[Rfam]
RNA sequence: GGGCCAACGCCAGUCGGUGGAUGGCUCGGCUCAGGCGCCGACGAAGGGCGCGGCAAGCAGCGAAAUGCCUGGGGGAGGCGCAAGCAGCCUUCGAUCCCAGGGUUCCCGAAUGGGAAUCCCCUUAGCGUAUCCGAUCUGUGAAGGUCGGAUACGGGAACUCCCCGAACGGAAGCAUCUUAGUAGGGGAAGGAGGAGAAAUCAAAUCGAGAUCUCCUGAGUAGGGGCGACCGAAAGGGAGAUAGCCCAAACCAAAUCCCGGCGACAAGCCGUUGGAGAUGUGGUGUUAGCCCCAGGUUAUAUCCCUAGCAUUUAUCGGCCGAAGUCCUCUGGAAAGAGGCACCAUAGAGGGUGAUAGUCCCGUAGGCAGAUAUAAUGUGGGAUGACUUGAGGGUAGAGUACCAUCCUCUGGUUUGAGGGUGGGAAGAUGGGGGACACGUGCCUCCAAGGCUAAAUACGUCCUGAGACCGAUAGCGAACUAAGUACUGUGAAGGAAAGCUGAAAAGCAUCCCGGAAGGGAGGUGAAAAGCGCCUGAAACCGACUGGUUACACAG
Numbered sequence: 001g002g003g004c005c006a007a008c009g010c011c012a013g014u015c016g017g018u019g020g021a022u023g024g025c026u027c028g029g030c031u032c033a034g035g036c037g038c039c040g041a042c043g044a045a046g047g048g049c050g051c052g053g054c055a056a057g058c059a060g061c062g063a064a065a066u067g068c069c070u071g072g073g074g075g076a077g078g079c080g081c082a083a084g085c086a087g088c089c090u091u092c093g094a095u096c097c098c099a100g101g102g103u104u105c106c107c108g109a110a111u112g113g114g115a116a117u118c119c120c121c122u123u124a125g126c127g128u129a130u131c132c133g134a135u136c137u138g139u140g141a142a143g144g145u146c147g148g149a150u151a152c153g154g155g156a157a158c159u160c161c162c163c164g165a166a167c168g169g170a171a172g173c174a175u176c177u178u179a180g181u182a183g184g185g186g187a188a189g190g191a192g193g194a195g196a197a198a199u200c201a202a203a204u205c206g207a208g209a210u211c212u213c214c215u216g217a218g219u220a221g222g223g224g225c226g227a228c229c230g231a232a233a234g235g236g237a238g239a240u241a242g243c244c245c246a247a248a249c250c251a252a253a254u255c256c257c258g259g260c261g262a263c264a265a266g267c268c269g270u271u272g273g274a275g276a277u278g279u280g281g282u283g284u285u286a287g288c289c290c291c292a293g294g295u296u297a298u299a300u301c302c303c304u305a306g307c308a309u310u311u312a313u314c315g316g317c318c319g320a321a322g323u324c325c326u327c328u329g330g331a332a333a334g335a336g337g338c339a340c341c342a343u344a345g346a347g348g349g350u351g352a353u354a355g356u357c358c359c360g361u362a363g364g365c366a367g368a369u370a371u372a373a374u375g376u377g378g379g380a381u382g383a384c385u386u387g388a389g390g391g392u393a394g395a396g397u398a399c400c401a402u403c404c405u406c407u408g409g410u411u412u413g414a415g416g417g418u419g420g421g422a423a424g425a426u427g428g429g430g431g432a433c434a435c436g437u438g439c440c441u442c443c444a445a446g447g448c449u450a451a452a453u454a455c456g457u458c459c460u461g462a463g464a465c466c467g468a469u470a471g472c473g474a475a476c477u478a479a480g481u482a483c484u485g486u487g488a489a490g491g492a493a494a495g496c497u498g499a500a501a502a503g504c505a506u507c508c509c510g511g512a513a514g515g516g517a518g519g520u521g522a523a524a525a526g527c528g529c530c531u532g533a534a535a536c537c538g539a540c541u542g543g544u545u546a547c548a549c550a551g
Stems, first nucleotide, its partner, number of pairs: 009544009023530001024496002028466002030463006036456002046107003049062003068101006077089003112121003128151010158189001159187005169176002199207002211238005221229002241449004249281003257269004291387004300380004316365003322338001324337004341345001347359003399420007427443005483490002
RNA: Archaeal large subunit ribosomal RNA, nucleotides 10 to 560